Record summary:
The family of this 279-nucleotide RNA sequence from Pristimantibacillus lignocellulolyticus is "T-box leader". Its family is annotated with tRNA binding in the Gene Ontology. NCBI's taxonomy places the organism under Bacteria, Bacillati, Caryophanales, Paenibacillaceae, Pristimantibacillus (SeqCode).
Nucleotides: 279
Base pairs, nucleotide, nucleotide: 007107008106015102016101017100018099028090030088032086039077040076041075050074051073052072053071054070055069111138112137113136114135115134116133141153142152143151213236214235215234216233217232218231219230220229221228243275244274245273253272254271255270256269257268258267259266
Number, partner (000 for none) and nucleotide at each position: 001000c002000a003000a004000u005000c006000g007107g008106c009000a010000a011000u012000g013000a014000u015102g016101a017100g018099g019000a020000a021000a022000a023000a024000g025000u026000a027000u028090u029000u030088a031000g032086g033000g034000c035000u036000c037000u038000a039077c040076u041075g042000c043000u044000c045000a046000g047000a048000g049000a050074g051073u052072a053071u054070u055069g056000g057000a058000u059000u060000a061000g062000c063000u064000g065000a066000a067000a068000c069055c070054a071053a072052u073051a074050c075041c076040a077039g078000a079000a080000u081000c082000c083000c084000u085000a086032u087000a088030u089000u090028a091000c092000g093000a094000a095000g096000u097000c098000g099018c100017c101016u102015c103000u104000g105000a106008g107007c108000u109000a110000u111138u112137u113136c114135c115134c116133u117000g118000a119000a120000a121000a122000g123000u124000g125000u126000u127000u128000g129000a130000u131000u132000a133116g134115g135114g136113g137112g138111a139000u140000u141153c142152g143151c144000a145000u146000g147000g148000c149000a150000a151143g152142c153141g154000u155000u156000a157000a158000a159000g160000u161000g162000c163000c164000u165000a166000u167000g168000g169000u170000a171000g172000g173000a174000a175000g176000u177000u178000c179000c180000a181000u182000g183000u184000u185000u186000a187000u188000u189000u190000a191000u192000g193000c194000a195000u196000g197000a198000c199000u200000c201000u202000u203000a204000c205000c206000u207000g208000u209000u210000g211000a212000g213236g214235u215234u216233g217232u218231c219230u220229a221228c222000u223000g224000a225000g226000a227000a228221g229220u230219g231218g232217a233216u234215a235214a236213c237000g238000a239000a240000u241000u242000u243275g244274g245273g246000u247000g248000g249000u250000a251000c252000c253272a254271c255270g256269g257268a258267a259266g260000a261000u262000a263000a264000a265000c266259c267258u268257u269256u270255c271254g272253u273245c274244c275243c276000u277000g278000u279000a